[Rfam]
RNA sequence: GCGGAAGGCCGGAUGACCGCGGGUGCCCGAAAGGACCGCCCGAGGAAAGUCCGGACUCCACGAGACGACGGUGCCGGGUAACGCCCGGCCGGGGCAACCCGAGGGAAAGCGCCACAGAAAAGAGACUUCCCCACAGGCCCGGCAAGGGCCGGGGGUAAAGGUGAAACGGUGGGGUAAGAGCCCACCGCGGGACUGGUAACAGGACCGGCACGGCAAGCCCCACCGGGAGCAAUGCCGAAUAGGGACCGCGCGCGGGGCCGGUCCCGGAUCACGGUCCGGGAUACCGCUCGCAGGCUUGUCUUGGCCCGGCGGUCCGGGUUGGCAGCUCGAGGCGCUCCGGCAACGGGGGCGUCCAGAGGAAUGGUCAUCCAUCCCGGCCUUCGGGCCGGGAGGACAGAAUCCGGCUUACAGGCCUUCCGCGCAA
Numbered sequence: 001g002c003g004g005a006a007g008g009c010c011g012g013a014u015g016a017c018c019g020c021g022g023g024u025g026c027c028c029g030a031a032a033g034g035a036c037c038g039c040c041c042g043a044g045g046a047a048a049g050u051c052c053g054g055a056c057u058c059c060a061c062g063a064g065a066c067g068a069c070g071g072u073g074c075c076g077g078g079u080a081a082c083g084c085c086c087g088g089c090c091g092g093g094g095c096a097a098c099c100c101g102a103g104g105g106a107a108a109g110c111g112c113c114a115c116a117g118a119a120a121a122g123a124g125a126c127u128u129c130c131c132c133a134c135a136g137g138c139c140c141g142g143c144a145a146g147g148g149c150c151g152g153g154g155g156u157a158a159a160g161g162u163g164a165a166a167c168g169g170u171g172g173g174g175u176a177a178g179a180g181c182c183c184a185c186c187g188c189g190g191g192a193c194u195g196g197u198a199a200c201a202g203g204a205c206c207g208g209c210a211c212g213g214c215a216a217g218c219c220c221c222a223c224c225g226g227g228a229g230c231a232a233u234g235c236c237g238a239a240u241a242g243g244g245a246c247c248g249c250g251c252g253c254g255g256g257g258c259c260g261g262u263c264c265c266g267g268a269u270c271a272c273g274g275u276c277c278g279g280g281a282u283a284c285c286g287c288u289c290g291c292a293g294g295c296u297u298g299u300c301u302u303g304g305c306c307c308g309g310c311g312g313u314c315c316g317g318g319u320u321g322g323c324a325g326c327u328c329g330a331g332g333c334g335c336u337c338c339g340g341c342a343a344c345g346g347g348g349g350c351g352u353c354c355a356g357a358g359g360a361a362u363g364g365u366c367a368u369c370c371a372u373c374c375c376g377g378c379c380u381u382c383g384g385g386c387c388g389g390g391a392g393g394a395c396a397g398a399a400u401c402c403g404g405c406u407u408a409c410a411g412g413c414c415u416u417c418c419g420c421g422c423a424a
Stems, first nucleotide, its partner, number of pairs: 001420010011409001012369007020042006028034001047407003051404005056229004064302002067299001069225005074088005089103001090101004104220002109218002111214003126160002129155002138153006168186006187209001188207003193202003233324004243315006293307002296304002332352005337346003